A member of the RNA family "PyrR binding site" from Peptacetobacter hiranonis, 109 nucleotides long. The match comes from Rfam's covariance-model search (54 bits). Rfam describes the family as follows. This family represents the PyrR binding site and terminator structure. This RNA structure is found upstream of a variety of genes involved in pyrimidine biosynthesis and transport. Taxonomically the source falls in Peptacetobacter hiranonis (Bacteria, Bacillota, Peptostreptococcales, Peptostreptococcaceae). The family's consensus secondary structure is taken from published work.

RNA sequence: AAGUCUUUUAAGCUAGUCCAGAGAGACUGGGAAAGAUAUCUCAUAGCGUUUUUUUGUUAUGGAAAGAUAAAAUCCUUAUGCCUCUUUUUGUGGUGUAAGGAUUUUUUGU
Numbered sequence: 001a002a003g004u005c006u007u008u009u010a011a012g013c014u015a016g017u018c019c020a021g022a023g024a025g026a027c028u029g030g031g032a033a034a035g036a037u038a039u040c041u042c043a044u045a046g047c048g049u050u051u052u053u054u055u056g057u058u059a060u061g062g063a064a065a066g067a068u069a070a071a072a073u074c075c076u077u078a079u080g081c082c083u084c085u086u087u088u089u090g091u092g093g094u095g096u097a098a099g100g101a102u103u104u105u106u107u108g109u
Base pairs, nucleotide, nucleotide: 003037004036005035006034007033008032009031013030014029015028016027017026018025039067040066041063042061043060044059045058046057047056048055069105070104071103072102073101074100075099076098077097078096079095080094081093082092